[Rfam]
RNA: Small nucleolar RNA SNORA3/SNORA45 family
Organism: Dipodomys ordii
RNA sequence: GCCGAGACUAGAGUCACAUCCUGAUACUGCACUUGUGCUGGUAUGCUAGCAUUCUUGGAGAGAAUCUGCUGGCCUUGAUUCACUGGUGGGGGCAGCCAGUGCCCCCAUUAGGGCCUCAAUCAGAAACUUGC
Numbered sequence: 001g002c003c004g005a006g007a008c009u010a011g012a013g014u015c016a017c018a019u020c021c022u023g024a025u026a027c028u029g030c031a032c033u034u035g036u037g038c039u040g041g042u043a044u045g046c047u048a049g050c051a052u053u054c055u056u057g058g059a060g061a062g063a064a065u066c067u068g069c070u071g072g073c074c075u076u077g078a079u080u081c082a083c084u085g086g087u088g089g090g091g092g093c094a095g096c097c098a099g100u101g102c103c104c105c106c107a108u109u110a111g112g113g114c115c116u117c118a119a120u121c122a123g124a125a126a127c128u129u130g131c
Stems, first nucleotide, its partner, number of pairs: 002058005007052001012047002015045002018042003024036003069123004077115001081113001083111004088106006